The record is a 129-nucleotide RNA from Paenibacillus rhizosphaerae, which matches "pan motif" in Rfam.
It is annotated as a cis-regulatory element.
[Rfam]
RNA sequence: GAGGCGGUAUCGACGGAUGAUCGAACUGCACUCUGCAUGUUUUUGUUUGAAGAACACCCUCAUAACUGCAAAUGGAAUAUUGCCGUUACGUUGGAUUCUGCUCUGAGCCGGAAGGACCGAGACAGAAGG
Numbered sequence: 001g002a003g004g005c006g007g008u009a010u011c012g013a014c015g016g017a018u019g020a021u022c023g024a025a026c027u028g029c030a031c032u033c034u035g036c037a038u039g040u041u042u043u044u045g046u047u048u049g050a051a052g053a054a055c056a057c058c059c060u061c062a063u064a065a066c067u068g069c070a071a072a073u074g075g076a077a078u079a080u081u082g083c084c085g086u087u088a089c090g091u092u093g094g095a096u097u098c099u100g101c102u103c104u105g106a107g108c109c110g111g112a113a114g115g116a117c118c119g120a121g122a123c124a125g126a127a128g129g
Stems, first nucleotide, its partner, number of pairs: 001033003004029005010024004098125003101121003105117001108115002